RNA: Vault RNA
RNA sequence: GCAUCGGUUUAGCUCAGUGGUUUCUUCACUGCCUGAGACGUAGCUCUCUCUGCGCUCUCUGUGGUGCAGGGUUCAACCACGGGCGCUGUCCGGUGUUUUA
Numbered sequence: 001g002c003a004u005c006g007g008u009u010u011a012g013c014u015c016a017g018u019g020g021u022u023u024c025u026u027c028a029c030u031g032c033c034u035g036a037g038a039c040g041u042a043g044c045u046c047u048c049u050c051u052g053c054g055c056u057c058u059c060u061g062u063g064g065u066g067c068a069g070g071g072u073u074c075a076a077c078c079a080c081g082g083g084c085g086c087u088g089u090c091c092g093g094u095g096u097u098u099u100a
Base pairs, nucleotide, nucleotide: 002095003094004093005092006091007090012084013083014082015081017080018079019078020077025076026075028073
Dot-bracket structure: .((((((....((((.((((....((.(............................................).)))))))))).....)))))).....